Shown here is an 88-nucleotide sequence from Aeromicrobium yanjiei, a member of the family "ZMP/ZTP riboswitch aptamer (pfl RNA motif)". The source organism's lineage runs through Bacteria, Bacillati, Propionibacteriales, Nocardioidaceae and Aeromicrobium. The match comes from Rfam's covariance-model search (47 bits). For this family Rfam cites "Recognition of the bacterial alarmone ZMP through long-distance association of two RNA subdomains" (Jones and Ferre-D'Amare, Nat Struct Mol Biol, 2015).

[Rfam]
RNA sequence: GCAAGCAGGUGCGACUGGCGUUGAGGUGGAUACCACCGGGGAGCGGCUGCGACACACGACAUCGGGACCGUUCGCCUGGGCCCCACGU
Numbered sequence: 001g002c003a004a005g006c007a008g009g010u011g012c013g014a015c016u017g018g019c020g021u022u023g024a025g026g027u028g029g030a031u032a033c034c035a036c037c038g039g040g041g042a043g044c045g046g047c048u049g050c051g052a053c054a055c056a057c058g059a060c061a062u063c064g065g066g067a068c069c070g071u072u073c074g075c076c077u078g079g080g081c082c083c084c085a086c087g088u
Base pairs, nucleotide, nucleotide: 005050006049007048008047010045011044012043015040016039017076018075019074020073026036027035028034029033065083066082068080069079